Notes:
Shown here is a 73-nucleotide RNA sequence from Chryseobacterium sp., a member of the family "tRNA". Rfam classes the family as a transfer RNA. The family's consensus secondary structure is taken from published work. About the family: Transfer RNA (tRNA) molecules are approximately 80 nucleotides in length.
[Rfam]
RNA sequence: GCAGGAAUGGCGAAAUGGUAAACGCGGCAGAUUUAGAAUCUGUUUCCUGAGAGUUCGAGUCUCUCUUCCUGUA
Numbered sequence: 001g002c003a004g005g006a007a008u009g010g011c012g013a014a015a016u017g018g019u020a021a022a023c024g025c026g027g028c029a030g031a032u033u034u035a036g037a038a039u040c041u042g043u044u045u046c047c048u049g050a051g052a053g054u055u056c057g058a059g060u061c062u063c064u065c066u067u068c069c070u071g072u073a
Stems, first nucleotide, its partner, number of pairs: 001072007010025003027043005049065005
Dot-bracket structure: (((((((..(((..........))).(((((.......))))).....(((((.......)))))))))))).